[Rfam]
RNA sequence: CAUCGGCGACCGGGCCCCUCUGGCGAGCGCAUCCAUGCGCUCGCGAUGUCGGAGUCGAUGC
Numbered sequence: 001c002a003u004c005g006g007c008g009a010c011c012g013g014g015c016c017c018c019u020c021u022g023g024c025g026a027g028c029g030c031a032u033c034c035a036u037g038c039g040c041u042c043g044c045g046a047u048g049u050c051g052g053a054g055u056c057g058a059u060g061c
Stems, first nucleotide, its partner, number of pairs: 006055002010052004023044008
Rfam assigns this 61-nucleotide RNA from Microvirga aerophila to the family "terC RNA". A search with the family's covariance model found it, with a score of 56 bits. Pairs were carried over by alignment from the consensus structure, which is taken from published work.